[Rfam]
Rfam assigns this 85-nucleotide sequence from Kribbella antiqua to the family "ZMP/ZTP riboswitch aptamer (pfl RNA motif)". The match comes from Rfam's covariance-model search (58 bits). Lineage of the source: Bacteria > Bacillati > Actinomycetota > Actinomycetes > Kribbella.
RNA sequence: UCGGUGGACCGCGACUGGCGUUGAGGUGGGGUACCACCGGGGAACGGUCUGCCAUCCGGCUUCGCCGCGCGCCUGGGCACUUUGU
Numbered sequence: 001u002c003g004g005u006g007g008a009c010c011g012c013g014a015c016u017g018g019c020g021u022u023g024a025g026g027u028g029g030g031g032u033a034c035c036a037c038c039g040g041g042g043a044a045c046g047g048u049c050u051g052c053c054a055u056c057c058g059g060c061u062u063c064g065c066c067g068c069g070c071g072c073c074u075g076g077g078c079a080c081u082u083u084g085u
Stems, first nucleotide, its partner, number of pairs: 003053009015041002017073005026037004064078003